[Rfam]
Nucleotides: 083
Base pairs, nucleotide, nucleotide: 001034002033003032004031005030006029007028012027013026014025015024016023017022039050040049055076056075057074058073059072060071061070062069063068
Number, partner (000 for none) and nucleotide at each position: 001034a002033a003032g004031c005030g006029g007028g008000u009000g010000a011000u012027c013026g014025a015024g016023a017022g018000g019000g020000u021000u022017c023016u024015c025014u026013c027012g028007u029006c030005c031004g032003c033002u034001u035000c036000a037000u038000a039050c040049c041000u042000c043000c044000c045000u046000g047000u048000u049040g050039g051000a052000c053000u054000u055076g056075g057074g058073c059072c060071g061070a062069g063068c064000u065000u066000c067000u068063g069062c070061u071060c072059g073058g074057c075056c076055u077000u078000u079000u080000u081000u082000u083000u
Rfam assigns this 83-nucleotide RNA sequence from Cereibacter sphaeroides to the family "Singlet oxygen resistance RNA Y". About the family: Singlet oxygen induced SorY is induced under several stress conditions and conferrs resistance against singlet oxygen by affecting a metabolite transporter. Rfam links the family to the GO term response to photooxidative stress. NCBI's taxonomy places the organism under Bacteria, Alphaproteobacteria, Rhodobacterales, Cereibacter, Cereibacter sphaeroides. The family's consensus secondary structure was predicted with RNAfold.